[Rfam]
RNA sequence: UAGUGUAAUAAGGCUUGUCAUGGGUGGUGGCUCAACUCCCUUCUGAAAGGGGGUGAUGCCUCUUGACAGUAUUUGAGACAUUGGUUUUAAUGAUCUCGUUUGCAACGUUGAUUGUUGCUUUAUUGUCGGAAAAAAAAUAACCACCCAAGCCUAGCAAGCAAUUAGGGUGGUCAUUUUAUGCGCCUUUUUUGUGAGCUGCCCCCUUGAAGGGCUAUUACACGGAGGCUUAAUGGUGUAUCAGCGCCAUUA
Numbered sequence: 001u002a003g004u005g006u007a008a009u010a011a012g013g014c015u016u017g018u019c020a021u022g023g024g025u026g027g028u029g030g031c032u033c034a035a036c037u038c039c040c041u042u043c044u045g046a047a048a049g050g051g052g053g054u055g056a057u058g059c060c061u062c063u064u065g066a067c068a069g070u071a072u073u074u075g076a077g078a079c080a081u082u083g084g085u086u087u088u089a090a091u092g093a094u095c096u097c098g099u100u101u102g103c104a105a106c107g108u109u110g111a112u113u114g115u116u117g118c119u120u121u122a123u124u125g126u127c128g129g130a131a132a133a134a135a136a137a138u139a140a141c142c143a144c145c146c147a148a149g150c151c152u153a154g155c156a157a158g159c160a161a162u163u164a165g166g167g168u169g170g171u172c173a174u175u176u177u178a179u180g181c182g183c184c185u186u187u188u189u190u191g192u193g194a195g196c197u198g199c200c201c202c203c204u205u206g207a208a209g210g211g212c213u214a215u216u217a218c219a220c221g222g223a224g225g226c227u228u229a230a231u232g233g234u235g236u237a238u239c240a241g242c243g244c245c246a247u248u249a
Stems, first nucleotide, its partner, number of pairs: 001222001003220003007216003012197005019149001021147006028139001032056003036053005065127007079092002102119001105116001160177002198212004228249009